The family of this 102-nucleotide RNA sequence from Alkalicoccus halolimnae is "Purine riboswitch aptamer". The source organism's lineage runs through Bacteria, Bacillota, Bacilli, Caryophanales and Alkalicoccus.

[Rfam]
RNA sequence: UUAUGAAAAAAAUCGAAUGUUCGUAUAAAGUUGGGAAUAUGGCCCGACAGUCUCUACCGGACCGCCUUAAAAGGUCUGACUACGAACAGUGAAUUAUUGGGA
Numbered sequence: 001u002u003a004u005g006a007a008a009a010a011a012a013u014c015g016a017a018u019g020u021u022c023g024u025a026u027a028a029a030g031u032u033g034g035g036a037a038u039a040u041g042g043c044c045c046g047a048c049a050g051u052c053u054c055u056a057c058c059g060g061a062c063c064g065c066c067u068u069a070a071a072a073g074g075u076c077u078g079a080c081u082a083c084g085a086a087c088a089g090u091g092a093a094u095u096a097u098u099g100g101g102a
Base pairs, nucleotide, nucleotide: 018088019087020086021085022084023083024082025081030048031047032046033045034044035043058078059077060076061075062074063073

The family's consensus secondary structure is taken from published work. Rfam links the family to the GO term purine nucleobase biosynthetic process. The match comes from Rfam's covariance-model search (83 bits).